[Rfam]
RNA: Small nucleolar RNA SNORA51
Organism: Castor canadensis
RNA sequence: UGCCUCCUGGUGCUCACCACAGUCUGUGUUCUUACACUGACUGUACAGAAAAAGGAGAAGUAAAGCUACCCCACAUAUACCUCAACCCAGGUCCUGUGCCUGGUCUGUACUAUGAAUGGGAAGACAUGG
Numbered sequence: 001u002g003c004c005u006c007c008u009g010g011u012g013c014u015c016a017c018c019a020c021a022g023u024c025u026g027u028g029u030u031c032u033u034a035c036a037c038u039g040a041c042u043g044u045a046c047a048g049a050a051a052a053a054g055g056a057g058a059a060g061u062a063a064a065g066c067u068a069c070c071c072c073a074c075a076u077a078u079a080c081c082u083c084a085a086c087c088c089a090g091g092u093c094c095u096g097u098g099c100c101u102g103g104u105c106u107g108u109a110c111u112a113u114g115a116a117u118g119g120g121a122a123g124a125c126a127u128g129g
Stems, first nucleotide, its partner, number of pairs: 004057005020043003026037004070120004083107002087103006